[Rfam]
RNA: S-element
Organism: Allomesorhizobium alhagi
RNA sequence: UGUCAAGAGUUUUAAGCGUCGAUUCGGCGAGCGGACUUCUUUUGCCUAAUUGAAGGCAGACGAGACUAUG
Numbered sequence: 001u002g003u004c005a006a007g008a009g010u011u012u013u014a015a016g017c018g019u020c021g022a023u024u025c026g027g028c029g030a031g032c033g034g035a036c037u038u039c040u041u042u043u044g045c046c047u048a049a050u051u052g053a054a055g056g057c058a059g060a061c062g063a064g065a066c067u068a069u070g
Base pairs, nucleotide, nucleotide: 009066010065011064012063013062018057019056020055023053024052026050029047031045032044033043034042035041